Record summary: The record is a 143-nucleotide sequence from Microvirga sp. BSC39, which matches "Alphaproteobacterial sRNA BjrC1505" in Rfam.
[Rfam]
RNA sequence: AGGGCGUUUAACCGCGCAUUAACCAUUUUCAAGCAUGAAUAAGGCAUCCAGGUCUCUCCCUGGAUGUCGAGUGGCUCAGAGGCCCACUCUGUUUGACGCUUCCCUGUUAGACUUCAAGAGCCGCCAUGAGCGGCUCAAUUUUU
Numbered sequence: 001a002g003g004g005c006g007u008u009u010a011a012c013c014g015c016g017c018a019u020u021a022a023c024c025a026u027u028u029u030c031a032a033g034c035a036u037g038a039a040u041a042a043g044g045c046a047u048c049c050a051g052g053u054c055u056c057u058c059c060c061u062g063g064a065u066g067u068c069g070a071g072u073g074g075c076u077c078a079g080a081g082g083c084c085c086a087c088u089c090u091g092u093u094u095g096a097c098g099c100u101u102c103c104c105u106g107u108u109a110g111a112c113u114u115c116a117a118g119a120g121c122c123g124c125c126a127u128g129a130g131c132g133g134c135u136c137a138a139u140u141u142u143u
Stems, first nucleotide, its partner, number of pairs: 002048002005014002015043001020041002024037002052065004069089006095108004118136007